The record is an 80-nucleotide RNA sequence from Danaus chrysippus, which matches "mir-998 microRNA precursor family" in Rfam. Its family is annotated with miRNA-mediated post-transcriptional gene silencing and RISC complex in the Gene Ontology. Pairs were carried over by alignment from the consensus structure, which was predicted with RNAalifold.

Nucleotides: 080
Base pairs, nucleotide, nucleotide: 003078004077005076006075007074012070015067016066018064019063023059024058025057026056027055028054029053030052033049035047036046037045
Number, partner (000 for none) and nucleotide at each position: 001000u002000g003078g004077g005076c006075g007074c008000g009000u010000g011000c012070c013000g014000c015067g016066a017000g018064c019063u020000a021000c022000a023059u024058c025057u026056c027055g028054u029053g030052g031000g032000g033049c034000c035047g036046c037045a038000g039000u040000g041000a042000g043000c044000g045037u046036g047035u048000a049033g050000c051000a052030c053029c054028a055027u056026g057025g058024g059023a060000u061000u062000c063019a064018g065000c066016u067015c068000a069000g070012g071000c072000c073000c074007g075006c076005g077004c078003c079000a080000c